Shown here is an 85-nucleotide RNA from Priestia taiwanensis, a member of the family "BsrC". Rfam describes the family as follows. The 301 nucleotide sequence from Kouji Nakamura has been trimmed to a highly conserved ~85 nucleotide long core to form this family. The family has 29 seed sequences and 572 matches in Rfam 15.1. It scores 64 bits against the family's covariance model. Pairs were carried over by alignment from the consensus structure, which was predicted with CMfinder. A reference for the family is Saito et al. (2008), "Novel small RNA-encoding genes in the intergenic regions of Bacillus subtilis", Gene. It is annotated as a small RNA. NCBI's taxonomy places the organism under Bacteria, Bacilli, Caryophanales, Bacillaceae, Priestia.
RNA sequence: UCUCCUGAUGAAAGCCCUACCUCUCUUUCAUCCUUGCGGCUCCACCGGCCGCGCCAGUUGCUUGAAUCGAACCAACAAAACAACU
Numbered sequence: 001u002c003u004c005c006u007g008a009u010g011a012a013a014g015c016c017c018u019a020c021c022u023c024u025c026u027u028u029c030a031u032c033c034u035u036g037c038g039g040c041u042c043c044a045c046c047g048g049c050c051g052c053g054c055c056a057g058u059u060g061c062u063u064g065a066a067u068c069g070a071a072c073c074a075a076c077a078a079a080a081c082a083a084c085u
Stems, first nucleotide, its partner, number of pairs: 028065003033057002035053007
Dot-bracket structure: ...........................(((..(((((((((.....)))))))..)).....)))....................